[Rfam]
RNA sequence: AUUUAUCUUCAGGGCACCGUGAAAUUCGGGACCGGCGGUUAAAGUCCGCGAGGCGAAAGCCUGAUGUGGUGUAAUUCCACAACCGACUGUACAGUCAGGAUGGGAGAAGAUGACA
Numbered sequence: 001a002u003u004u005a006u007c008u009u010c011a012g013g014g015c016a017c018c019g020u021g022a023a024a025u026u027c028g029g030g031a032c033c034g035g036c037g038g039u040u041a042a043a044g045u046c047c048g049c050g051a052g053g054c055g056a057a058a059g060c061c062u063g064a065u066g067u068g069g070u071g072u073a074a075u076u077c078c079a080c081a082a083c084c085g086a087c088u089g090u091a092c093a094g095u096c097a098g099g100a101u102g103g104g105a106g107a108a109g110a111u112g113a114c115a
Stems, first nucleotide, its partner, number of pairs: 003113008017029003031095002033085002035049004044083002052061003065081005087098003
Dot-bracket structure: ..((((((((......(((.......))).[[((((((.....[[))))..(((....)))...(((((.......)))))]])).(((....]]))).......))))))))..

This 115-nucleotide RNA from Lactococcus termiticola belongs to the Rfam family "FMN riboswitch aptamer (RFN element)". Taxonomically the source falls in Lactococcus (Bacteria, Bacilli, Lactobacillales, Streptococcaceae).